[Rfam]
RNA sequence: UUAAAGAAUUUGAAGACUUUAAUUCGCAUACUUGGAAGAUUUGAAGACUUCAGCUUGCAUACUCGGAAGAUUUGAAGACUUAAACU
Numbered sequence: 001u002u003a004a005a006g007a008a009u010u011u012g013a014a015g016a017c018u019u020u021a022a023u024u025c026g027c028a029u030a031c032u033u034g035g036a037a038g039a040u041u042u043g044a045a046g047a048c049u050u051c052a053g054c055u056u057g058c059a060u061a062c063u064c065g066g067a068a069g070a071u072u073u074g075a076a077g078a079c080u081u082a083a084a085c086u
Stems, first nucleotide, its partner, number of pairs: 001084002004081003009076006018067003026058003032053005
RNA: MIR8024 microRNA precursor family
Organism: Solanum tuberosum